[Rfam]
RNA: Z30 small nucleolar RNA
Organism: Oryzias javanicus
RNA sequence: CUGCCGUGAUGAGCUGUGAGGACUGAUCUGGUAUUGCUGCCCUCCGGGGAGAGCUCUGACCAGAGAAUGAUCUCCCUUCAAUCUUCUCUCUGAGCUG
Numbered sequence: 001c002u003g004c005c006g007u008g009a010u011g012a013g014c015u016g017u018g019a020g021g022a023c024u025g026a027u028c029u030g031g032u033a034u035u036g037c038u039g040c041c042c043u044c045c046g047g048g049g050a051g052a053g054c055u056c057u058g059a060c061c062a063g064a065g066a067a068u069g070a071u072c073u074c075c076c077u078u079c080a081a082u083c084u085u086c087u088c089u090c091u092g093a094g095c096u097g
Stems, first nucleotide, its partner, number of pairs: 003095002036054003